[Rfam]
RNA: skipping-rope RNA
RNA sequence: AAUUGACGAGGUGGGAACAGCUACCCCACACGCCCGGCAACGGGUAAUUAGGUCUUUCGAGGCUGAAGAGAUGCAGGUUGGCAACUGCCGUUGUAU
Numbered sequence: 001a002a003u004u005g006a007c008g009a010g011g012u013g014g015g016a017a018c019a020g021c022u023a024c025c026c027c028a029c030a031c032g033c034c035c036g037g038c039a040a041c042g043g044g045u046a047a048u049u050a051g052g053u054c055u056u057u058c059g060a061g062g063c064u065g066a067a068g069a070g071a072u073g074c075a076g077g078u079u080g081g082c083a084a085c086u087g088c089c090g091u092u093g094u095a096u
Stems, first nucleotide, its partner, number of pairs: 001096001004093005011029005020082004031068001032045004073088004